[Rfam]
RNA sequence: AAAUUAUUUUUUGAACAAGCAGUAAAGAGCAGUAAUGGCUCUUUACGUAGCCGGGUCUAUAAGUGUUUAGACAGCAGAAAAAUGUUUAGUAAAUGAACUGAGCAUAUCUGUGAGACAGUA
Numbered sequence: 001a002a003a004u005u006a007u008u009u010u011u012u013g014a015a016c017a018a019g020c021a022g023u024a025a026a027g028a029g030c031a032g033u034a035a036u037g038g039c040u041c042u043u044u045a046c047g048u049a050g051c052c053g054g055g056u057c058u059a060u061a062a063g064u065g066u067u068u069a070g071a072c073a074g075c076a077g078a079a080a081a082a083u084g085u086u087u088a089g090u091a092a093a094u095g096a097a098c099u100g101a102g103c104a105u106a107u108c109u110g111u112g113a114g115a116c117a118g119u120a
Stems, first nucleotide, its partner, number of pairs: 011118003016114001019051002022046009055072005074111005
Dot-bracket structure: ..........(((..(..((.(((((((((.......)))))))))...))...(((((........))))).(((((............................)))))..).)))..
NiCo (Nickel/Cobalt) riboswitch aptamer: a 120-nucleotide sequence from Granulicatella sp. zg-ZJ. The literature on the family includes a 2015 paper in Mol Cell by Furukawa et al., "Bacterial riboswitches cooperatively bind Ni(2+) or Co(2+) ions and control expression of heavy metal transporters". Rfam links the family to the GO terms cobalt ion binding and metal ion homeostasis. The family is grouped with related families in Rfam's "NiCo_riboswitches".